[Rfam]
RNA sequence: CAUAGCAACAAGGGGGGCUCGCGGAAAGCGGGCUGAGAGUAAGCUGUCAGUGCUUUGACCCGUAACCUGAUUUGGAUAAUGCCAACGUAGGGAUAUAGCGUGAGUAUUUU
Numbered sequence: 001c002a003u004a005g006c007a008a009c010a011a012g013g014g015g016g017g018c019u020c021g022c023g024g025a026a027a028g029c030g031g032g033c034u035g036a037g038a039g040u041a042a043g044c045u046g047u048c049a050g051u052g053c054u055u056u057g058a059c060c061c062g063u064a065a066c067c068u069g070a071u072u073u074g075g076a077u078a079a080u081g082c083c084a085a086c087g088u089a090g091g092g093a094u095a096u097a098g099c100g101u102g103a104g105u106a107u108u109u110u
Stems, first nucleotide, its partner, number of pairs: 006098001008096001010094001012061003016056001017033005041055004066091004072085004

Rfam assigns this 110-nucleotide RNA sequence from Dorea sp. D27 to the family "TPP riboswitch aptamer (THI element)". The match comes from Rfam's covariance-model search (60 bits). Vitamin B(1) in its active form thiamin pyrophosphate (TPP) is an essential coenzyme that is synthesised by coupling of pyrimidine and thiazole moieties in bacteria. The source organism's lineage runs through Bacteria, Bacillati, Lachnospirales, Lachnospiraceae and Dorea. The base pairs follow the family's consensus structure, which is taken from published work.